Rfam assigns this 118-nucleotide sequence from Occultella aeris to the family "Actinobacteria sRNA Ms_IGR-7". Taxonomically the source falls in Occultella (Bacteria, Bacillati, Actinomycetota, Actinomycetes). The literature on the family includes a 2013 paper in RNA by Li et al., "Identification of small RNAs in Mycobacterium smegmatis using heterologous Hfq". The family's RNA type in Rfam is small RNA.
RNA sequence: CGAGAUGCCCUUCUUGAACUGACGAUACGGACCUUCGACAAGUCGUAUCUUCCCAGGUCAGAAGGGCAUUCUCACGCCCCCACGCCACCGACAACACCUAGCCCAUCGGUGGAUCGAG
Numbered sequence: 001c002g003a004g005a006u007g008c009c010c011u012u013c014u015u016g017a018a019c020u021g022a023c024g025a026u027a028c029g030g031a032c033c034u035u036c037g038a039c040a041a042g043u044c045g046u047a048u049c050u051u052c053c054c055a056g057g058u059c060a061g062a063a064g065g066g067c068a069u070u071c072u073c074a075c076g077c078c079c080c081c082a083c084g085c086c087a088c089c090g091a092c093a094a095c096a097c098c099u100a101g102c103c104c105a106u107c108g109g110u111g112g113a114u115c116g117a118g
Base pairs, nucleotide, nucleotide: 002072004070005069006068007067008066009065010064011063012062013061015060016059017058019056020055021054024049025048026047028045031043032042099116101114103112104111105110